[Rfam]
RNA: Small nucleolar RNA SNORA51
RNA sequence: GGAGUCCUGCUUACCACACACUGUAUUCUUAUGCUGACGGUAUAUGGAGAGGAGGCAGAGCAAACCGACUCCCUGUACAGCUUAUCCCAGGUCAUUGUGCCUGAUCUGUAUUGUGAAUGGGGAGACAUG
Dot-bracket structure: .(..((((........(.....((((....)))).....).........))))..)............((((.(........((...(((((......)))))...))........).)))).......